[Rfam]
RNA sequence: ACCUUAUCGAGAGUGGUGGAGGGACUGGCCCUGUGAAACCACGGCAACCUACAUAAAUAAUCUUUAUGUGAAGGUGCCAAAUCCUGCAGAAAUAAUUCUGAGAGAUAAGGA
Dot-bracket structure: .(((((((....(((((...(((.[.[[)))......)))))((((.(((((((((.......)))))))..))))))...(]].](((((....)))))..)))))))).